[Rfam]
RNA sequence: GUCUCGCCGCCUGAACCUUUCGUCUCAACCUCUUUACGCUGGUAGGUGAGCAAAGUUUCAGGUGUGCAAGCGG
Numbered sequence: 001g002u003c004u005c006g007c008c009g010c011c012u013g014a015a016c017c018u019u020u021c022g023u024c025u026c027a028a029c030c031u032c033u034u035u036a037c038g039c040u041g042g043u044a045g046g047u048g049a050g051c052a053a054a055g056u057u058u059c060a061g062g063u064g065u066g067c068a069a070g071c072g073g
Stems, first nucleotide, its partner, number of pairs: 003070002006067002008064007017055004024050004029046003

Rfam assigns this 73-nucleotide sequence from Dictyocaulus viviparus to the family "mir-87 microRNA precursor family".
The source organism's lineage runs through Eukaryota, Ecdysozoa, Chromadorea, Metastrongylidae and Dictyocaulus.
The literature on the family includes a 2003 paper in Dev Biol by Sempere et al., "Temporal regulation of microRNA expression in Drosophila melanogaster mediated by hormonal signals and broad-Complex gene activity".
It scores 59 bits against the family's covariance model.
The family's consensus secondary structure was predicted with RNAalifold.